RNA sequence: AUAGCGGAACCCGAAAAGCUGAUAGAGUAGGGA
Numbered sequence: 001a002u003a004g005c006g007g008a009a010c011c012c013g014a015a016a017a018g019c020u021g022a023u024a025g026a027g028u029a030g031g032g033a
Base pairs, nucleotide, nucleotide: 003020004019005018010032011031012030
The family of this 33-nucleotide RNA sequence is "DUF805b RNA". It is annotated as a cis-regulatory element. Clan: DUF805 clan. Pairs were carried over by alignment from the consensus structure, which is taken from published work.